[Rfam]
This 59-nucleotide sequence from Rhodoplanes elegans belongs to the Rfam family "Selenocysteine insertion sequence 3". The family's RNA type in Rfam is cis-regulatory element. It scores 86 bits against the family's covariance model.
RNA sequence: GUUUGACACGGCCCGACGGUAGCCAGUCUGGCUCCGACGUUCGGCCGUGGUGCGAUGAC
Number, nucleotide and partner (000 for none) at each position: 001g000002u000003u000004u000005g000006a000007c049008a048009c047010g046011g045012c044013c043014c000015g042016a041017c000018g035019g034020u000021a033022g032023c031024c030025a029026g000027u000028c000029u025030g024031g023032c022033u021034c019035c018036g000037a000038c000039g000040u000041u016042c015043g013044g012045c011046c010047g009048u008049g007050g000051u000052g000053c000054g000055a000056u000057g000058a000059c000
The source organism's lineage runs through Bacteria, Pseudomonadati, Pseudomonadota, Alphaproteobacteria and Rhodoplanes. On this family, see Huttenhofer et al., RNA 1996: "Solution structure of mRNA hairpins promoting selenocysteine incorporation in Escherichia coli and their base-specific interaction with special elongation factor SELB".